[Rfam]
RNA sequence: UGCCUGCUGGGGUUCCUGGUGAUGUGAUUUUACCUUGAUGUUCAGAAUCACAUUGCCAGGGAUUUCCAACUGUUG
Numbered sequence: 001u002g003c004c005u006g007c008u009g010g011g012g013u014u015c016c017u018g019g020u021g022a023u024g025u026g027a028u029u030u031u032a033c034c035u036u037g038a039u040g041u042u043c044a045g046a047a048u049c050a051c052a053u054u055g056c057c058a059g060g061g062a063u064u065u066c067c068a069a070c071u072g073u074u075g
Stems, first nucleotide, its partner, number of pairs: 001075002004072001006070001010067002012063019